A member of the RNA family "Cyanobacterial functional RNA 11" from Prochlorococcus marinus, 134 nucleotides long. Lineage of the source: Bacteria > Bacillati > Cyanobacteriota > Prochlorococcaceae > Prochlorococcus marinus. The sequence is in the family's curated seed alignment. A reference for the family is Steglich et al. (2008), "The challenge of regulation in a minimal photoautotroph: non-coding RNAs in Prochlorococcus", PLoS Genet.
RNA sequence: ACUAAAAAGGAGGGAUUAGAAAUGAUCGAUAGUCCACCAGAGAAUUUAAUUGGAUUGGUUUAAACAGCCAGUUUUACUACACAUAACUAAGUUAGGAGAUUAAUUUCUAAAGGCGGAAGUUAAUCUCUUUUUUU
Numbered sequence: 001a002c003u004a005a006a007a008a009g010g011a012g013g014g015a016u017u018a019g020a021a022a023u024g025a026u027c028g029a030u031a032g033u034c035c036a037c038c039a040g041a042g043a044a045u046u047u048a049a050u051u052g053g054a055u056u057g058g059u060u061u062a063a064a065c066a067g068c069c070a071g072u073u074u075u076a077c078u079a080c081a082c083a084u085a086a087c088u089a090a091g092u093u094a095g096g097a098g099a100u101u102a103a104u105u106u107c108u109a110a111a112g113g114c115g116g117a118a119g120u121u122a123a124u125c126u127c128u129u130u131u132u133u134u
Stems, first nucleotide, its partner, number of pairs: 014027005030089004045081001047079002050076001053073001056070005094129009105118004
The family's consensus secondary structure was predicted with mfold.
Rfam classes the family as a small RNA.